[Rfam]
RNA: SAM (S-adenosyl methionine) riboswitch aptamer
Organism: Rhodococcus sp. Leaf258
RNA sequence: GGUCAUGAGUGCCAGCAUCGAGCCCCGGCUUGCUGGCCGGCAACCCUCCAACCGCGGUGGGGUGCCCCGGGUGAUGACCGGGUUACUCGGCCCGCACGGGCCGAGAGCAAGCGCGGGCC
Numbered sequence: 001g002g003u004c005a006u007g008a009g010u011g012c013c014a015g016c017a018u019c020g021a022g023c024c025c026c027g028g029c030u031u032g033c034u035g036g037c038c039g040g041c042a043a044c045c046c047u048c049c050a051a052c053c054g055c056g057g058u059g060g061g062g063u064g065c066c067c068c069g070g071g072u073g074a075u076g077a078c079c080g081g082g083u084u085a086c087u088c089g090g091c092c093c094g095c096a097c098g099g100g101c102c103g104a105g106a107g108c109a110a111g112c113g114c115g116g117g118c119c
Base pairs, nucleotide, nucleotide: 001079002078003077004076009038011037012036013035014034015033016032021030022029039066040065041064044062045061046060048057049056082108083107084106087104088103089102090101091100092099093098